[Rfam]
RNA sequence: UCACAGGAUAGAGGCGCAUUUUUCAAGAGUAUAUAUAUGGAUGUAUGUAGGUACAGAUGAAGUAUAUAGAAAGGGGAAAAUGCCGAAGGAGAAAAAUCCUGCAGUUUUUCGUCCUGGUUUUGCAGUGAAUAACUGCACGACUGUCAUCAGUAGUGUUAUAAUAUUACUGAUGGAGAGCUAUCUGUGAA
Numbered sequence: 001u002c003a004c005a006g007g008a009u010a011g012a013g014g015c016g017c018a019u020u021u022u023u024c025a026a027g028a029g030u031a032u033a034u035a036u037a038u039g040g041a042u043g044u045a046u047g048u049a050g051g052u053a054c055a056g057a058u059g060a061a062g063u064a065u066a067u068a069g070a071a072a073g074g075g076g077a078a079a080a081u082g083c084c085g086a087a088g089g090a091g092a093a094a095a096a097u098c099c100u101g102c103a104g105u106u107u108u109u110c111g112u113c114c115u116g117g118u119u120u121u122g123c124a125g126u127g128a129a130u131a132a133c134u135g136c137a138c139g140a141c142u143g144u145c146a147u148c149a150g151u152a153g154u155g156u157u158a159u160a161a162u163a164u165u166a167c168u169g170a171u172g173g174a175g176a177g178c179u180a181u182c183u184g185u186g187a188a
Stems, first nucleotide, its partner, number of pairs: 006183006016083009032068007087115004091110007116142004121137006144173011